[Rfam]
RNA sequence: GUUGUCAUCUCUCCAGGGAUGAUCAACGAC
Numbered sequence: 001g002u003u004g005u006c007a008u009c010u011c012u013c014c015a016g017g018g019a020u021g022a023u024c025a026a027c028g029a030c
Stems, first nucleotide, its partner, number of pairs: 001030005007020005
Dot-bracket structure: (((((.(((((....))))).....)))))
The family of this 30-nucleotide RNA from Sphaerisporangium rubeum is "CRISPR RNA direct repeat element". Rfam links the family to the GO term defense response.